Nuclear RNase P: a 305-nucleotide RNA sequence from Anabas testudineus.
The match comes from Rfam's covariance-model search (222 bits).
Clan: RNaseP clan.
Pairs were carried over by alignment from the consensus structure, which is taken from published work.
[Rfam]
RNA sequence: GUGGGCGGAAGCUCAUUGUAGAGGUCACAUGCUGAGUGCUCGUCACUCCACCAAUCACCUCGGGGAAGGUCUGAGACAGGAGCCAAUCGUCGCCCUCGCAGGGCGUCACCCGACCCGGGUGAGCGAGCGAACAGAAACCAGGGUCCGUGUGAGCUGCAGCCGCAGGAGAAGCCUGACGGAGCGGCUUCAGCUCCGCCGGUGGAUGCGACGCUCGCAGACUUGGAAUCACUCGCGGCUGGCGAAUGAGUGCGAUGGAUGAGGUGGAGCACAGCUCCAGAACCCAAUUCAGACUACUCUCCACCCAC
Numbered sequence: 001g002u003g004g005g006c007g008g009a010a011g012c013u014c015a016u017u018g019u020a021g022a023g024g025u026c027a028c029a030u031g032c033u034g035a036g037u038g039c040u041c042g043u044c045a046c047u048c049c050a051c052c053a054a055u056c057a058c059c060u061c062g063g064g065g066a067a068g069g070u071c072u073g074a075g076a077c078a079g080g081a082g083c084c085a086a087u088c089g090u091c092g093c094c095c096u097c098g099c100a101g102g103g104c105g106u107c108a109c110c111c112g113a114c115c116c117g118g119g120u121g122a123g124c125g126a127g128c129g130a131a132c133a134g135a136a137a138c139c140a141g142g143g144u145c146c147g148u149g150u151g152a153g154c155u156g157c158a159g160c161c162g163c164a165g166g167a168g169a170a171g172c173c174u175g176a177c178g179g180a181g182c183g184g185c186u187u188c189a190g191c192u193c194c195g196c197c198g199g200u201g202g203a204u205g206c207g208a209c210g211c212u213c214g215c216a217g218a219c220u221u222g223g224a225a226u227c228a229c230u231c232g233c234g235g236c237u238g239g240c241g242a243a244u245g246a247g248u249g250c251g252a253u254g255g256a257u258g259a260g261g262u263g264g265a266g267c268a269c270a271g272c273u274c275c276a277g278a279a280c281c282c283a284a285u286u287c288a289g290a291c292u293a294c295u296c297u298c299c300a301c302c303c304a305c
Base pairs, nucleotide, nucleotide: 001305002304003303004302007299008298009297012260013259014258015257016256017255021061022060023059024058034048035047036046037045038044071289072288073287074286075285081237082236083235084234091105092104093103094102095101106122107121108120109119110118111117123233124232125231126230127229129227143219144218145217262276263275264274265273266272267271